[Rfam]
Nucleotides: 125
Base pairs, nucleotide, nucleotide: 011110012109013108014107018031019030020029032105033104034103035102036101037100042050043049051090052089053088059067060066070084071083072082073081
Number, partner (000 for none) and nucleotide at each position: 001000c002000u003000a004000a005000a006000a007000a008000a009000u010000c011110c012109g013108c014107c015000g016000a017000g018031u019030g020029u021000u022000a023000u024000a025000c026000a027000a028000a029020a030019c031018a032105a033104c034103g035102g036101g037100a038000g039000a040000a041000c042050c043049a044000a045000u046000c047000u048000c049043u050042g051090g052089g053088g054000u055000g056000a057000a058000u059067u060066c061000u062000u063000u064000u065000u066060g067059a068000a069000a070084g071083a072082g073081a074000a075000c076000c077000u078000u079000c080000u081073u082072c083071u084070c085000u086000a087000a088053c089052c090051c091000g092000u093000c094000a095000g096000c097000u098000a099000a100037u101036c102035u103034c104033g105032u106000a107014g108013g109012c110011g111000a112000a113000g114000a115000a116000g117000g118000u119000u120000u121000u122000g123000u124000u125000c